RNase MRP: a 254-nucleotide RNA from Clytia hemisphaerica.
Rfam classes the family as a ribozyme.
From the family's description: RNase MRP is an enzymatically active ribonucleoprotein with two distinct roles in eukaryotes. In mitochondria it plays a direct role in the initiation of mitochondrial DNA replication. In the nucleus it is involved in precursor rRNA processing, where it cleaves the internal transcribed spacer 1 between 18S and 5.8S rRNAs.
Gene Ontology terms of the family: rRNA processing, ribonuclease MRP activity and ribonuclease MRP complex.
Lineage of the source: Eukaryota > Eumetazoa > Obeliida > Clytiidae > Clytia.
[Rfam]
RNA sequence: GGGCACAACGAAGACAGACUCUCCGAGUUCGCAUGGUGGAAACACUUUGUGAUUCUCUGGGAAAAGUCCCCGGACCUGUGGUAGAAAUACCUUGCUUUGAGAGCUGAUAGAAGCAACGAUUCUCGUCUGAGCGAAGAUCCUUUCGAGGUGAGCAAUGUGAGGAGUUGAUUUCUUUUAGUCAUAGCAAAGUCAUGUCUGUGCAGCUUCUCAUUUGUACGAAGUUGUUACUCAACGGGGCUUACUCUCGUUGUGUC
Numbered sequence: 001g002g003g004c005a006c007a008a009c010g011a012a013g014a015c016a017g018a019c020u021c022u023c024c025g026a027g028u029u030c031g032c033a034u035g036g037u038g039g040a041a042a043c044a045c046u047u048u049g050u051g052a053u054u055c056u057c058u059g060g061g062a063a064a065a066g067u068c069c070c071c072g073g074a075c076c077u078g079u080g081g082u083a084g085a086a087a088u089a090c091c092u093u094g095c096u097u098u099g100a101g102a103g104c105u106g107a108u109a110g111a112a113g114c115a116a117c118g119a120u121u122c123u124c125g126u127c128u129g130a131g132c133g134a135a136g137a138u139c140c141u142u143u144c145g146a147g148g149u150g151a152g153c154a155a156u157g158u159g160a161g162g163a164g165u166u167g168a169u170u171u172c173u174u175u176u177a178g179u180c181a182u183a184g185c186a187a188a189g190u191c192a193u194g195u196c197u198g199u200g201c202a203g204c205u206u207c208u209c210a211u212u213u214g215u216a217c218g219a220a221g222u223u224g225u226u227a228c229u230c231a232a233c234g235g236g237g238c239u240u241a242c243u244c245u246c247g248u249u250g251u252g253u254c
Stems, first nucleotide, its partner, number of pairs: 002254010014199006022060002025057003036045003064240003068237004080091004092107003096103002110171003114167004121162004131153002139148003201224006
Dot-bracket structure: .((((((((((..((((((..((.(((........(((....))).........))).))...[[[.[[[[........((((....))))(((.((....)).)))..(((.((((...((((......((......(((....)))...)).....)))).)))).)))......................)))))).((((((............)))))).........]]]]]]]....))))))))))